[Rfam]
RNA sequence: AAGACUAUACUUUCAGGGAUCAUUUCUAUAGUUUUUGACUUGAGAAAUGUGUUUCUAAAGUGUCUGGUCUCACUACCCACGAUGAUGAGUUAUGAUAUUCCUUUCUGAGCGUGAAGCAGGCAGAGAGAAAUGAUUCAGUUCAUAUGUUCUCUGUCAUUGAGGAUCGUUCUUGGUUCUUUUUAGGAACUUUGAGGAAAGGAGUAUGAUCAGAGUGGU
Numbered sequence: 001a002a003g004a005c006u007a008u009a010c011u012u013u014c015a016g017g018g019a020u021c022a023u024u025u026c027u028a029u030a031g032u033u034u035u036u037g038a039c040u041u042g043a044g045a046a047a048u049g050u051g052u053u054u055c056u057a058a059a060g061u062g063u064c065u066g067g068u069c070u071c072a073c074u075a076c077c078c079a080c081g082a083u084g085a086u087g088a089g090u091u092a093u094g095a096u097a098u099u100c101c102u103u104u105c106u107g108a109g110c111g112u113g114a115a116g117c118a119g120g121c122a123g124a125g126a127g128a129a130a131u132g133a134u135u136c137a138g139u140u141c142a143u144a145u146g147u148u149c150u151c152u153g154u155c156a157u158u159g160a161g162g163a164u165c166g167u168u169c170u171u172g173g174u175u176c177u178u179u180u181u182a183g184g185a186a187c188u189u190u191g192a193g194g195a196a197a198g199g200a201g202u203a204u205g206a207u208c209a210g211a212g213u214g215g216u
Base pairs, nucleotide, nucleotide: 001041002040003039005037007034009032010031011030015027016026017025018024051064055062077215078214079213080212095204096203097202098201099200100199101198102197103196104195105194106193109167110166111165119155120154121153122152125149126148127147130143131142132141133140172188173187174186175185176184177183178182
Rfam assigns this 216-nucleotide RNA from Gouania willdenowi to the family "Small nucleolar RNA U3". The family has 87 seed sequences and 19,072 matches in Rfam 15.1. Clan: U3 clan. A search with the family's covariance model found it, with a score of 163 bits. Rfam describes the family as follows. Small nucleolar RNAs (snoRNAs) are involved in the processing and modification of rRNA in the nucleolus. There are two main classes of snoRNAs: the box C/D class, and the box H/ACA class. U3 snoRNA is a member of the box C/D class. Indeed, the box C/D element is a subset of the six short sequence elements found in all U3 snoRNAs, namely boxes A, A', B, C, C', and D. The U3 snoRNA secondary structure is characterised by a small 5' domain (with boxes A and A'), and a larger 3' domain (with boxes B, C, C', and D), the two domains being linked by a single-stranded hinge. The literature on the family includes a 1997 paper in Nucleic Acids Res by Zwieb, "The uRNA database".